[Rfam]
RNA: ASdes TB sRNA
Organism: Mycolicibacterium sediminis
RNA sequence: AGGGCGUCGGGAUCGACCGCGCGGGUGACCACCAGGUAGUCGCGCAGGGCGAUGCCGUGCCGGUUCUC
Numbered sequence: 001a002g003g004g005c006g007u008c009g010g011g012a013u014c015g016a017c018c019g020c021g022c023g024g025g026u027g028a029c030c031a032c033c034a035g036g037u038a039g040u041c042g043c044g045c046a047g048g049g050c051g052a053u054g055c056c057g058u059g060c061c062g063g064u065u066c067u068c
Stems, first nucleotide, its partner, number of pairs: 005062002008059002011030001013028001016026003035056004040052004